[Rfam]
RNA sequence: UGGCCAGCCCCAUCUGGAAGACUAGUGAUUUUGUUGUUGUUUCUCUAUACCCAACAACAAGUCCCAGUCUGCCUCAUGGUGUGAGCCA
Numbered sequence: 001u002g003g004c005c006a007g008c009c010c011c012a013u014c015u016g017g018a019a020g021a022c023u024a025g026u027g028a029u030u031u032u033g034u035u036g037u038u039g040u041u042u043c044u045c046u047a048u049a050c051c052c053a054a055c056a057a058c059a060a061g062u063c064c065c066a067g068u069c070u071g072c073c074u075c076a077u078g079g080u081g082u083g084a085g086c087c088a
Stems, first nucleotide, its partner, number of pairs: 002087003005083001007082002010079004016073002019070005025065001027063005033058006